[Rfam]
RNA sequence: GAAGUAACCACGGGGUGCCGUUAUUCGGCUGAGAUGAUACCCGUUGAACCUGAUCUGGGUAAUGCCAGCGUAGGAAUAUCGGUUGACUCGUAGUAA
Numbered sequence: 001g002a003a004g005u006a007a008c009c010a011c012g013g014g015g016u017g018c019c020g021u022u023a024u025u026c027g028g029c030u031g032a033g034a035u036g037a038u039a040c041c042c043g044u045u046g047a048a049c050c051u052g053a054u055c056u057g058g059g060u061a062a063u064g065c066c067a068g069c070g071u072a073g074g075a076a077u078a079u080c081g082g083u084u085g086a087c088u089c090g091u092a093g094u095a096a
Base pairs, nucleotide, nucleotide: 006084007083008082009081011043012042013041014040016037017029018028019027020026049074050073051072052071055068056067057066058065
Rfam assigns this 96-nucleotide RNA sequence from Marinoscillum sp. 108 to the family "TPP riboswitch aptamer (THI element)". The base pairs follow the family's consensus structure, which is taken from published work. The organism belongs to Marinoscillum, within Bacteria.